Shown here is a 68-nucleotide RNA from Virgibacillus salarius, a member of the family "Bacillaceae-1 RNA".
[Rfam]
RNA sequence: CAAAUGCGUACAAAGGCUUCAUUCGCCACGUCCUGUGGCAACGCCUUUGUGACCUACUUCCAUGUAGC
Numbered sequence: 001c002a003a004a005u006g007c008g009u010a011c012a013a014a015g016g017c018u019u020c021a022u023u024c025g026c027c028a029c030g031u032c033c034u035g036u037g038g039c040a041a042c043g044c045c046u047u048u049g050u051g052a053c054c055u056a057c058u059u060c061c062a063u064g065u066a067g068c
Base pairs, nucleotide, nucleotide: 011049012048013047014046015045016044017043025039026038027037028036029035054067055066056065057064
Overview:
The family's RNA type in Rfam is small RNA.